[Rfam]
Nucleotides: 068
Stems, first nucleotide, its partner, number of pairs: 001054008011021002027044005034068006
Number, partner (000 for none) and nucleotide at each position: 001054g002053c003052c004051g005050c006049g007048c008047c009000u010000a011021g012020g013000c014000u015000g016000a017000u018000c019000c020012c021011c022000g023000a024000a025000a026000c027044c028043c029042c030041g031040c032000g033000a034068c035067c036066c037065u038064u039063g040031g041030c042029g043028g044027g045000c046000u047008g048007g049006c050005g051004c052003g053002g054001c055000u056000c057000c058000u059000g060000a061000a062000u063039c064038a065037a066036g067035g068034g